[Rfam]
RNA sequence: CCCCAGGGGUUUUGUCAGGGCUUCUUCCGCAUUCAUUGCACCUACGAUGGAGGUCGUCCGUUACACCGCUGGGAGAAUGAUAUCCACAUUCCACGUCCUUGGUCUGGUCAUCAGAUUGAGGGCUGAGGGUCUCCGUCUUGGAGGCUGUCACGGAUACCGGACGUGUUUCUGAUGAGUUGAAGGCCAUCUCUAGCCACUUGGUUAGCGAAUGGUGGUCUUCUUAGUGAUGAUUCACACACUU
Numbered sequence: 001c002c003c004c005a006g007g008g009g010u011u012u013u014g015u016c017a018g019g020g021c022u023u024c025u026u027c028c029g030c031a032u033u034c035a036u037u038g039c040a041c042c043u044a045c046g047a048u049g050g051a052g053g054u055c056g057u058c059c060g061u062u063a064c065a066c067c068g069c070u071g072g073g074a075g076a077a078u079g080a081u082a083u084c085c086a087c088a089u090u091c092c093a094c095g096u097c098c099u100u101g102g103u104c105u106g107g108u109c110a111u112c113a114g115a116u117u118g119a120g121g122g123c124u125g126a127g128g129g130u131c132u133c134c135g136u137c138u139u140g141g142a143g144g145c146u147g148u149c150a151c152g153g154a155u156a157c158c159g160g161a162c163g164u165g166u167u168u169c170u171g172a173u174g175a176g177u178u179g180a181a182g183g184c185c186a187u188c189u190c191u192a193g194c195c196a197c198u199u200g201g202u203u204a205g206c207g208a209a210u211g212g213u214g215g216u217c218u219u220c221u222u223a224g225u226g227a228u229g230a231u232u233c234a235c236a237c238a239c240u241u
Base pairs, nucleotide, nucleotide: 003072004071005070006069018059019058020057021056024053025052026051027050029039030038031037083161084160085159095123096122097121098120099119100118101117102116103115104114105113106112127149129145130144131143132142133141134140135139163235164234165233168230169229179220180219181218182217184215185214186213187212190205191204192203193202194201195200
This 241-nucleotide RNA sequence from Immersiella caudata belongs to the Rfam family "Small nucleolar RNA snR191". By type it is an H/ACA-box small nucleolar RNA. It scores 46 bits against the family's covariance model. The family is grouped with related families in Rfam's "SNORA74 clan". The source organism's lineage runs through Eukaryota, leotiomyceta, Sordariomycetes, Sordariomycetidae and Immersiella. A reference for the family is Badis et al. (2003), "A snoRNA that guides the two most conserved pseudouridine modifications within rRNA confers a growth advantage in yeast", RNA.